[Rfam]
RNA sequence: UGUCAUGCUUUUCCACAGCUUUCUUGAACUUCUUCUUCUUCUUCUUGUUCUAGCUGGCUUCUUAUUUCUUGUUGUGUGCAUGGCAUUCUUAGAAGUUCAAGAAAGCUGUGGGAGAACAUGGCAA
Dot-bracket structure: ..(((((.....(((.((((((.((((.(((((.........................................................))))).)))).)))))).))).....)))))...
Rfam assigns this 124-nucleotide RNA from Manihot esculenta to the family "MIR396 microRNA precursor family". On this family, see Jones-Rhoades and Bartel, Mol Cell 2004: "Computational identification of plant microRNAs and their targets, including a stress-induced miRNA". The source organism's lineage runs through Eukaryota, Streptophyta, Embryophyta, Tracheophyta and Manihot. Pairs were carried over by alignment from the consensus structure, which was predicted with WAR. Rfam 15.1 lists 744 matches to the family in 207 species.